[Rfam]
RNA sequence: UCAAUGGGCGACUAGGGUUCCGGUCCGCACUGCGGAUGACUGGUCCGAGAGUCGCCGACCUCUCCAACGAGGGGUUACACGGCGGGACAAAAGCCCGGGAGAU
Numbered sequence: 001u002c003a004a005u006g007g008g009c010g011a012c013u014a015g016g017g018u019u020c021c022g023g024u025c026c027g028c029a030c031u032g033c034g035g036a037u038g039a040c041u042g043g044u045c046c047g048a049g050a051g052u053c054g055c056c057g058a059c060c061u062c063u064c065c066a067a068c069g070a071g072g073g074g075u076u077a078c079a080c081g082g083c084g085g086g087a088c089a090a091a092a093g094c095c096c097g098g099g100a101g102a103u
Stems, first nucleotide, its partner, number of pairs: 007056006015046002020043002022040001023037006057076008078098001080101001084096003
RNA: Guanidine-I riboswitch aptamer